[Rfam]
RNA sequence: GUGGUCUGGGGGAAGGCUCCUGGUGGUUGACCCCGCGCAACUGUGGGUACAGCCUGGUACCAGCCAGCCCAGCCCUGACGACCUAGAGUAAAAUGCCCAGGAUUUCCCCUGGGUUUUGAAUUUGCAGUAACAGGUGUGAACAUUCUAGCAGCAGCUUGAUGAUCAUGUAUACUACUGCAAACAGGA
Numbered sequence: 001g002u003g004g005u006c007u008g009g010g011g012g013a014a015g016g017c018u019c020c021u022g023g024u025g026g027u028u029g030a031c032c033c034c035g036c037g038c039a040a041c042u043g044u045g046g047g048u049a050c051a052g053c054c055u056g057g058u059a060c061c062a063g064c065c066a067g068c069c070c071a072g073c074c075c076u077g078a079c080g081a082c083c084u085a086g087a088g089u090a091a092a093a094u095g096c097c098c099a100g101g102a103u104u105u106c107c108c109c110u111g112g113g114u115u116u117u118g119a120a121u122u123u124g125c126a127g128u129a130a131c132a133g134g135u136g137u138g139a140a141c142a143u144u145c146u147a148g149c150a151g152c153a154g155c156u157u158g159a160u161g162a163u164c165a166u167g168u169a170u171a172c173u174a175c176u177g178c179a180a181a182c183a184g185g186a
Base pairs, nucleotide, nucleotide: 003083004082005081006080008075009074010073015069016068017067018066020063021062022061023060024059025054026053027052028051029050032047033046096113097112098111100108101106121181122180123179124178125177126176127175128174129173132170137165138164139163141161142160143159144158147156148155149154
A member of the RNA family "Small Cajal body specific RNA 16" from Chrysochloris asiatica, 186 nucleotides long.
The base pairs follow the family's consensus structure, which was predicted with RNAfold.
Rfam's curators write: scaRNAs are a specific class of small nuclear RNAs which localise to the Cajal bodies and guide the modification of RNA polymerase II transcribed spliceosomal RNAs U1, U2, U4, U5 and U12. ACA47 belongs to the H/ACA box class of guide RNAs as it has the predicted hairpin-hinge-hairpin-tail structure, the conserved H/ACA-box motifs and is found associated with GAR1.
Gene Ontology terms of the family: RNA processing and nucleolus.
The literature on the family includes a 2002 paper in EMBO J by Darzacq et al., "Cajal body-specific small nuclear RNAs: a novel class of 2'-O-methylation and pseudouridylation guide RNAs".